RNA sequence: GGGGAUGAUAUUGGACUCGACGAGAUUCUUGAAACCCAAGGUGCAUGCCGAGGUGGCGGUUGGCCUCGUAAAAAGCCGCCAACGUUAUAGUUGCAAACGACUCUAACUACUCUCUAGCAGCUUAGGCUAGCUAGCCUUCCACCCACGUUUCUCCUAUGGGCAGGGAUUCGGAAGGUCAUUCACAUUUGGAUAGCGAGGGAACCUUGUUCGAGGGUGAACCGCGAAAUAGUAUCGAACUCGCUUUUUGGUAUCCUGUCUAUUGGAGAUCAACGAGUUAACCAAAAAAUAGACUAAGCAUGUAGUACCGACGAUGUAGGUUUUUCGGACGGGGGUUCGAAUCCCCCCAUCUCCACCA
Numbered sequence: 001g002g003g004g005a006u007g008a009u010a011u012u013g014g015a016c017u018c019g020a021c022g023a024g025a026u027u028c029u030u031g032a033a034a035c036c037c038a039a040g041g042u043g044c045a046u047g048c049c050g051a052g053g054u055g056g057c058g059g060u061u062g063g064c065c066u067c068g069u070a071a072a073a074a075g076c077c078g079c080c081a082a083c084g085u086u087a088u089a090g091u092u093g094c095a096a097a098c099g100a101c102u103c104u105a106a107c108u109a110c111u112c113u114c115u116a117g118c119a120g121c122u123u124a125g126g127c128u129a130g131c132u133a134g135c136c137u138u139c140c141a142c143c144c145a146c147g148u149u150u151c152u153c154c155u156a157u158g159g160g161c162a163g164g165g166a167u168u169c170g171g172a173a174g175g176u177c178a179u180u181c182a183c184a185u186u187u188g189g190a191u192a193g194c195g196a197g198g199g200a201a202c203c204u205u206g207u208u209c210g211a212g213g214g215u216g217a218a219c220c221g222c223g224a225a226a227u228a229g230u231a232u233c234g235a236a237c238u239c240g241c242u243u244u245u246u247g248g249u250a251u252c253c254u255g256u257c258u259a260u261u262g263g264a265g266a267u268c269a270a271c272g273a274g275u276u277a278a279c280c281a282a283a284a285a286a287u288a289g290a291c292u293a294a295g296c297a298u299g300u301a302g303u304a305c306c307g308a309c310g311a312u313g314u315a316g317g318u319u320u321u322u323c324g325g326a327c328g329g330g331g332g333u334u335c336g337a338a339u340c341c342c343c344c345c346a347u348c349u350c351c352a353c354c355a
Stems, first nucleotide, its partner, number of pairs: 001351007021324005028317003034312001036310001040306003044299005049068005055080007113134001119128003135175006141167001143165002147161003152190003156186001193222003206238001208236001240275004245270005251264003255291004260285002328344005
The family of this 355-nucleotide RNA sequence from Psychromonas sp. Urea-02u-13 is "transfer-messenger RNA". The organism belongs to Psychromonas, within Bacteria. Rfam classes the family as a non-coding RNA gene. Bacterial tmRNA, also known as 10Sa RNA or SsrA, is named for its dual tRNA and mRNA-like properties. Its role is to liberate the mRNA from a stalled ribosome.